About this RNA: A member of the RNA family "U1 spliceosomal RNA" from Gossypium hirsutum, 162 nucleotides long. The family's consensus secondary structure is taken from published work. Its family is annotated with mRNA 5'-splice site recognition, U1 snRNP and pre-mRNA 5'-splice site binding in the Gene Ontology. By type it is a spliceosomal small nuclear RNA. About the family: U1 is a small nuclear RNA (snRNA) component of the spliceosome (involved in pre-mRNA splicing). Its 5' end forms complementary base pairs with the 5' splice junction, thus defining the 5' donor site of an intron.
RNA sequence: AUACUUACCUGGACGGGGUCGAUGGGUGAUCAGCAAGACCCAUGUCCUAGGCAAGCGACUUCCAUUGCACUAGGGAAGGGCACUUGCCUAAGGUCUCCUCAAAGUAGGAGAACCUACGUCAUAAUUUGUGGCAGUGGGGUCCUGCGUUCGCGCGGUCCCUUU
Numbered sequence: 001a002u003a004c005u006u007a008c009c010u011g012g013a014c015g016g017g018g019u020c021g022a023u024g025g026g027u028g029a030u031c032a033g034c035a036a037g038a039c040c041c042a043u044g045u046c047c048u049a050g051g052c053a054a055g056c057g058a059c060u061u062c063c064a065u066u067g068c069a070c071u072a073g074g075g076a077a078g079g080g081c082a083c084u085u086g087c088c089u090a091a092g093g094u095c096u097c098c099u100c101a102a103a104g105u106a107g108g109a110g111a112a113c114c115u116a117c118g119u120c121a122u123a124a125u126u127u128g129u130g131g132c133a134g135u136g137g138g139g140u141c142c143u144g145c146g147u148u149c150g151c152g153c154g155g156u157c158c159c160u161u162u
Stems, first nucleotide, its partner, number of pairs: 012120004016048003020044002023042005049089003055083001057081001059079003062075002091115003094111003098107002136160004143154004